[Rfam]
RNA sequence: UGGCCCUUUAAAUUAGUCCUGCGAGGCUAAUAAGGGAGAGUCAUCUAAAUAUAGACUCCUGUAAAGACGGGGGACCUGUGCCAGAUUUAGAUGUAUAACUUCCUAUUAGCCUUGUAUGCAAAUAGGAAGUUUUUUU
Numbered sequence: 001u002g003g004c005c006c007u008u009u010a011a012a013u014u015a016g017u018c019c020u021g022c023g024a025g026g027c028u029a030a031u032a033a034g035g036g037a038g039a040g041u042c043a044u045c046u047a048a049a050u051a052u053a054g055a056c057u058c059c060u061g062u063a064a065a066g067a068c069g070g071g072g073g074a075c076c077u078g079u080g081c082c083a084g085a086u087u088u089a090g091a092u093g094u095a096u097a098a099c100u101u102c103c104u105a106u107u108a109g110c111c112u113u114g115u116a117u118g119c120a121a122a123u124a125g126g127a128a129g130u131u132u133u134u135u136u
Base pairs, nucleotide, nucleotide: 004036005035006034007033008032013030014029015028016027017026018025042093043092044091045090046089047088048087049086050085052083097131098130099129100128101127102126103125104124105123106122107121109119110118
About this RNA
Shown here is a 136-nucleotide RNA sequence from Natranaerobius trueperi, a member of the family "PyrR binding site". The base pairs follow the family's consensus structure, which is taken from published work. Rfam classes the family as a cis-regulatory element. A search with the family's covariance model found it, with a score of 59 bits. A reference for the family is Bonner et al. (2001), "Molecular recognition of pyr mRNA by the Bacillus subtilis attenuation regulatory protein PyrR", Nucleic Acids Res.